[Rfam]
RNA sequence: UGGUGAGGUAGAGGUUGCGAAAUUCACGAUUAACGGUUAACGAGGCGCAUGACACGCCAAUGACUAACCGCGAAAAGGAUGCUCGCCGAAGUGAAAAUAGGUGUCAGACUAUUUAAGCUGGGGCUGUUAUCGAAAGAAACAGAACUGCUGUUUUUGCCAAUAGCUUGGCGGGACGGGUGUGCUAUCUAAUGC
Numbered sequence: 001u002g003g004u005g006a007g008g009u010a011g012a013g014g015u016u017g018c019g020a021a022a023u024u025c026a027c028g029a030u031u032a033a034c035g036g037u038u039a040a041c042g043a044g045g046c047g048c049a050u051g052a053c054a055c056g057c058c059a060a061u062g063a064c065u066a067a068c069c070g071c072g073a074a075a076a077g078g079a080u081g082c083u084c085g086c087c088g089a090a091g092u093g094a095a096a097a098u099a100g101g102u103g104u105c106a107g108a109c110u111a112u113u114u115a116a117g118c119u120g121g122g123g124c125u126g127u128u129a130u131c132g133a134a135a136g137a138a139a140c141a142g143a144a145c146u147g148c149u150g151u152u153u154u155u156g157c158c159a160a161u162a163g164c165u166u167g168g169c170g171g172g173a174c175g176g177g178u179g180u181g182c183u184a185u186c187u188a189a190u191g192c
Stems, first nucleotide, its partner, number of pairs: 006187006017086004024079002034070006090119003095114006120146002124142005130136001148176007